RNA sequence: CCUGUCCCUAGAUGCAUUGCUGAUGUGGCUACUGUGCCAUGUAGCAUGUUUGUCAGUAGGUGAUAGAGAGGAACGACGCUAUGUCUAUGCUCAGUGUUCUGACCUGUGAACAUCUGAAUGAUUAAUACCCUAAUACU
Numbered sequence: 001c002c003u004g005u006c007c008c009u010a011g012a013u014g015c016a017u018u019g020c021u022g023a024u025g026u027g028g029c030u031a032c033u034g035u036g037c038c039a040u041g042u043a044g045c046a047u048g049u050u051u052g053u054c055a056g057u058a059g060g061u062g063a064u065a066g067a068g069a070g071g072a073a074c075g076a077c078g079c080u081a082u083g084u085c086u087a088u089g090c091u092c093a094g095u096g097u098u099c100u101g102a103c104c105u106g107u108g109a110a111c112a113u114c115u116g117a118a119u120g121a122u123u124a125a126u127a128c129c130c131u132a133a134u135a136c137u
Base pairs, nucleotide, nucleotide: 002066003065004064005063006062007060008059009058010057014053015052019045020044021043024041025040026039027038028037029036073134076131078129080127081126082125088120089119091117092116093115094114095112096111097110098109099108
A member of the RNA family "Small nucleolar RNA SNORA17" from Mus musculus, 137 nucleotides long. snoRNA ACA 17 belongs to the H/ACA family of snoRNAs and is predicted to guide pseudouridylation of the 28S rRNA at positions U4659 and U4598. The family is grouped with related families in Rfam's "SNORA17 clan". A reference for the family is Ofengand and Bakin (1997), "Mapping to nucleotide resolution of pseudouridine residues in large subunit ribosomal RNAs from representative eukaryotes, prokaryotes, archaebacteria, mitochondria and chloroplasts", J Mol Biol. By type it is an H/ACA-box small nucleolar RNA.